[Rfam]
Small nucleolar RNA SNORA72: a 134-nucleotide RNA from Acipenser ruthenus. The organism belongs to Acipenser, within Eukaryota. About the family: U72 is a member of the H/ACA class of snoRNAs. The snoRNA gene is located in intron 4 of the ribosomal L30 protein gene in human, mouse and chicken. On this family, see Ganot et al., Genes Dev 1997: "The family of box ACA small nucleolar RNAs is defined by an evolutionarily conserved secondary structure and ubiquitous sequence elements essential for RNA accumulation". Rfam classes the family as an H/ACA-box small nucleolar RNA. Its family is annotated with RNA processing and nucleolus in the Gene Ontology.
Nucleotides: 134
Base pairs, nucleotide, nucleotide: 004057005056016045017043019041020040021039022038023037024036025035026034070130071129072128076125086112087111088110090108091107092106094104095103
Number, partner (000 for none) and nucleotide at each position: 001000a002000c003000a004057g005056g006000c007000a008000u009000a010000u011000u012000c013000u014000c015000a016045c017043c018000u019041g020040u021039u022038g023037g024036a025035u026034c027000u028000a029000u030000c031000a032000a033000c034026g035025a036024u037023c038022u039021a040020a041019u042000c043017g044000u045016g046000g047000c048000u049000a050000g051000a052000c053000a054000u055000u056005c057004c058000g059000u060000a061000g062000a063000u064000a065000a066000a067000a068000a069000a070130a071129u072128c073000c074000u075000u076125c077000a078000g079000u080000g081000u082000g083000u084000c085000c086112a087111c088110a089000u090108a091107a092106c093000u094104g095103g096000u097000u098000u099000u100000g101000u102000g103095c104094c105000u106092g107091u108090u109000c110088u111087g112086u113000u114000u115000u116000u117000a118000u119000u120000u121000u122000u123000c124000u125076g126000c127000u128072g129071a130070u131000a132000a133000g134000a